[Rfam]
RNA sequence: GUCCUGACUGGAAGUAGGACAUACUCUCGCACAAGGCGAGGGCUGGGGACUGGUCAUCCUCGGCAAAUAUUAACCGGGUGUGUGACCUCACCCUUCUCCU
Numbered sequence: 001g002u003c004c005u006g007a008c009u010g011g012a013a014g015u016a017g018g019a020c021a022u023a024c025u026c027u028c029g030c031a032c033a034a035g036g037c038g039a040g041g042g043c044u045g046g047g048g049a050c051u052g053g054u055c056a057u058c059c060u061c062g063g064c065a066a067a068u069a070u071u072a073a074c075c076g077g078g079u080g081u082g083u084g085a086c087c088u089c090a091c092c093c094u095u096c097u098c099c100u
Stems, first nucleotide, its partner, number of pairs: 001020006025041006042064008076093005
Rfam assigns this 100-nucleotide RNA sequence to the family "engA RNA". It is annotated as a cis-regulatory element. It is one of the family's seed sequences.